Rfam assigns this 99-nucleotide sequence to the family "che1 RNA". By type it is a small RNA.
[Rfam]
RNA sequence: AGGACAGGGGGGUUCCUGCUCAUCGGCAGGGCCUGUCCGACGGGCCGCGCGGACGCCUGCGCCGAGCGGCCGGUGGUUGUCGCUCGGGGGUGGUCGCCG
Numbered sequence: 001a002g003g004a005c006a007g008g009g010g011g012g013u014u015c016c017u018g019c020u021c022a023u024c025g026g027c028a029g030g031g032c033c034u035g036u037c038c039g040a041c042g043g044g045c046c047g048c049g050c051g052g053a054c055g056c057c058u059g060c061g062c063c064g065a066g067c068g069g070c071c072g073g074u075g076g077u078u079g080u081c082g083c084u085c086g087g088g089g090g091u092g093g094u095c096g097c098c099g
Stems, first nucleotide, its partner, number of pairs: 002038007014031007043071006050064003